[Rfam]
RNA sequence: AGGACUAUAGCUCAGUUGGUUAGAGCGCUACCUUGACAUGGUAGAGGUCUGCAGUUCGAAUCUGCAUAGUCCUA
Numbered sequence: 001a002g003g004a005c006u007a008u009a010g011c012u013c014a015g016u017u018g019g020u021u022a023g024a025g026c027g028c029u030a031c032c033u034u035g036a037c038a039u040g041g042u043a044g045a046g047g048u049c050u051g052c053a054g055u056u057c058g059a060a061u062c063u064g065c066a067u068a069g070u071c072c073u074a
Base pairs, nucleotide, nucleotide: 001073002072003071004070005069006068007067010026011025012024013023028044029043030042031041032040050066051065052064053063054062

This 74-nucleotide RNA sequence from Halobacteriovorax sp. DA5 belongs to the Rfam family "tRNA". A reference for the family is Lowe and Eddy (1997), "tRNAscan-SE: a program for improved detection of transfer RNA genes in genomic sequence", Nucleic Acids Res. A search with the family's covariance model found it, with a score of 70 bits. By type it is a transfer RNA.